[Rfam]
RNA sequence: UAGAAAUACGCUCCUUUGAGUGUUUUUAGAUACGCAUGAAGAAAGUCUGUCCAAAGAAUUGUUCUUCAUGCUUUUAUUAUACCA
Numbered sequence: 001u002a003g004a005a006a007u008a009c010g011c012u013c014c015u016u017u018g019a020g021u022g023u024u025u026u027u028a029g030a031u032a033c034g035c036a037u038g039a040a041g042a043a044a045g046u047c048u049g050u051c052c053a054a055a056g057a058a059u060u061g062u063u064c065u066u067c068a069u070g071c072u073u074u075u076a077u078u079a080u081a082c083c084a
Base pairs, nucleotide, nucleotide: 004027005026006025008023009022010021011020012019013018032073034071035070036069037068038067039066040065041064042063043062

ctRNA: an 84-nucleotide sequence from Lactococcus cremoris. The literature on the family includes a 1998 paper in FEMS Microbiol Lett by Duan et al., "Involvement of antisense RNA in replication control of the lactococcal plasmid pND324". Pairs were carried over by alignment from the consensus structure, which was predicted with ILM. Rolling circle replication plasmids contain a number of mechanisms to maintain a low copy number. One of these methods is to transcribe a small RNA called ctRNA (for counter-transcribed RNA) than is transcribed on the opposite strand to RepB the replication initiation protein. ctRNA binds to the mRNA of repB and causes translational inhibition. The family's RNA type in Rfam is antisense RNA. Rfam links the family to the GO terms mRNA binding and plasmid copy number maintenance.